Description
Bacterial RNase P class B: a 355-nucleotide sequence from Mycoplasma haemocanis. It scores 232 bits against the family's covariance model. The family's RNA type in Rfam is ribozyme.

[Rfam]
Nucleotides: 355
Base pairs, nucleotide, nucleotide: 005353007319008318009317010316011315012314015037016036017035018034019033020032042349043348044347046346047345048344049343050342051234052233053232054231055230056073057072058071059070060069061068079229080228081227083225084107085106086105087104088103108126109124110123111122112121113120114119127224128223130167131166132165137159138158140156144153145152146151173222174221175218176217177216189206190205191204192203193202194201195200238254239253240252258287259286260285261284262283263282264281288304289303290302291301292300293299322334323333324332325331
Number, partner (000 for none) and nucleotide at each position: 001000a002000c003000a004000g005353u006000u007319g008318u009317u010316g011315a012314u013000u014000a015037c016036u017035g018034a019033u020032u021000u022000a023000u024000u025000u026000u027000a028000a029000a030000u031000a032020a033019a034018u035017u036016a037015g038000g039000g040000g041000a042349a043348a044347g045000u046346c047345c048344u049343u050342a051234c052233u053232u054231c055230c056073a057072c058071g059070g060069c061068c062000u063000g064000c065000g066000a067000u068061g069060g070059u071058c072057g073056u074000a075000a076000u077000g078000u079229u080228g081227g082000u083225g084107c085106a086105a087104g088103c089000a090000u091000a092000u093000a094000a095000a096000a097000a098000a099000u100000a101000a102000a103088g104087c105086u106085u107084g108126a109124c110123g111122c112121u113120c114119c115000u116000u117000a118000a119114g120113g121112g122111g123110u124109g125000a126108u127224g128223a129000c130167g131166g132165g133000g134000a135000a136000u137159a138158g139000g140156a141000u142000a143000a144153g145152g146151c147000g148000a149000a150000a151146g152145c153144u154000a155000c156140u157000a158138c159137u160000u161000a162000u163000u164000c165132u166131c167130u168000a169000u170000a171000a172000a173222g174221u175218g176217c177216c178000a179000c180000a181000g182000a183000g184000a185000c186000g187000a188000g189206c190205u191204a192203u193202g194201c195200a196000g197000a198000a199000a200195u201194g202193c203192a204191u205190a206189g207000g208000u209000g210000a211000a212000a213000c214000g215000c216177g217176g218175u219000a220000a221174a222173c223128u224127c225083c226000u227081c228080c229079a230055g231054g232053a233052a234051g235000a236000a237000a238254c239253c240252u241000a242000a243000a244000u245000u246000a247000c248000g249000g250000u251000a252240a253239g254238g255000g256000a257000a258287u259286u260285u261284g262283u263282u264281u265000u266000c267000u268000g269000a270000a271000a272000u273000u274000g275000a276000a277000c278000g279000g280000a281264a282263a283262a284261c285260a286259a287258g288304g289303g290302g291301a292300u293299c294000c295000a296000a297000a298000c299293g300292a301291u302290c303289u304288c305000a306000g307000a308000u309000u310000a311000a312000u313000u314012a315011u316010c317009a318008a319007c320000g321000u322334a323333u324332c325331c326000u327000c328000a329000c330000a331325g332324g333323a334322u335000a336000a337000c338000a339000g340000a341000a342050u343049a344048a345047g346046g347044c348043u349042u350000a351000u352000u353005a354000a355000g